[Rfam]
RNA sequence: CCCCGGAGUAGAAGCAGUCAGCGCCCCCAGGGUGCGGUCAUUGCUCCCCCA
Numbered sequence: 001c002c003c004c005g006g007a008g009u010a011g012a013a014g015c016a017g018u019c020a021g022c023g024c025c026c027c028c029a030g031g032g033u034g035c036g037g038u039c040a041u042u043g044c045u046c047c048c049c050c051a
Stems, first nucleotide, its partner, number of pairs: 005047006015036001019037001021035006
Shown here is a 51-nucleotide RNA, a member of the family "Xanthine riboswitch aptamer (NMT1 RNA)". Pairs were carried over by alignment from the consensus structure, which is taken from published work. Its family is annotated with purine nucleobase binding in the Gene Ontology.